[Rfam]
RNA: c-di-AMP riboswitch aptamer (ydaO/yuaA leader)
RNA sequence: GCAGCGGCAACGCCGAGUCCGCCAUCACGCGCGGAGCCGGGGACCCAUACCUCGCACCGGGGUGAAUCGGCCUGCCCCCAGGCCGUAGGGCGACUUCCACGCCCGAACCCGUCAGCUAACCCGGUAGGCGCCUGGAAGCAAGGAG
Numbered sequence: 001g002c003a004g005c006g007g008c009a010a011c012g013c014c015g016a017g018u019c020c021g022c023c024a025u026c027a028c029g030c031g032c033g034g035a036g037c038c039g040g041g042g043a044c045c046c047a048u049a050c051c052u053c054g055c056a057c058c059g060g061g062g063u064g065a066a067u068c069g070g071c072c073u074g075c076c077c078c079c080a081g082g083c084c085g086u087a088g089g090g091c092g093a094c095u096u097c098c099a100c101g102c103c104c105g106a107a108c109c110c111g112u113c114a115g116c117u118a119a120c121c122c123g124g125u126a127g128g129c130g131c132c133u134g135g136a137a138g139c140a141a142g143g144a145g
Stems, first nucleotide, its partner, number of pairs: 011130004018035005036125006046059001060110003068085004088104004